[Rfam]
RNA sequence: GCGAGGUGACGAUGAAAUUCAUGUCUGUCAAUCCACUGAAAUUACAAGUGUGAUGUUUACUCAUGAAUCCCGACAGGUUCUGAUCGC
Numbered sequence: 001g002c003g004a005g006g007u008g009a010c011g012a013u014g015a016a017a018u019u020c021a022u023g024u025c026u027g028u029c030a031a032u033c034c035a036c037u038g039a040a041a042u043u044a045c046a047a048g049u050g051u052g053a054u055g056u057u058u059a060c061u062c063a064u065g066a067a068u069c070c071c072g073a074c075a076g077g078u079u080c081u082g083a084u085c086g087c
Base pairs, nucleotide, nucleotide: 001087002086003085004084
RNA: Small nucleolar RNA snoR14
Organism: Protea cynaroides